[Rfam]
RNA sequence: UCACUUUUCGUGUUCGAUGUUUGAACUUGGAUUUUUUUUAUAUACACAAAUCUGUUCAUUCCUCGACACUAGAAGUUU
Numbered sequence: 001u002c003a004c005u006u007u008u009c010g011u012g013u014u015c016g017a018u019g020u021u022u023g024a025a026c027u028u029g030g031a032u033u034u035u036u037u038u039u040a041u042a043u044a045c046a047c048a049a050a051u052c053u054g055u056u057c058a059u060u061c062c063u064c065g066a067c068a069c070u071a072g073a074a075g076u077u078u
Stems, first nucleotide, its partner, number of pairs: 003076006010069003014066004019061001022058005029053006
The record is a 78-nucleotide sequence from Drosophila virilis, which matches "mir-973 microRNA precursor family" in Rfam.
The sequence is in the family's curated seed alignment.